[Rfam]
RNA sequence: GCCUUAUAAAGAUGUAUGAACGCAAGACAGUUUGGCAUCUCCCUUUAAGGCCUUGUUCAAUUAGAAACUUCAGUGAUAAGUCUUAUUGCGUGGCAUUCGUCGAAAUGAGAUGAAUUGAAGUGGAAUAGGUUAACGGUUAGACCUUGAAUUGAAAAAUUCUAAAAUUGAUCUCAAAGGUAAUUAUUACUUUUUAAUACUUCUGAGUAACCGUCGA
Dot-bracket structure: ((((((.(.((((((.((((((.....).)))))))))))...).))))))...............((((((((......(((((((....((......))..)))))))...)))))))).....[[[[[.(((((((]]]]].(((((....))))).....)....((((.(((((.(............)))))).)))).))))))...
RNA: IS605-orfB-I RNA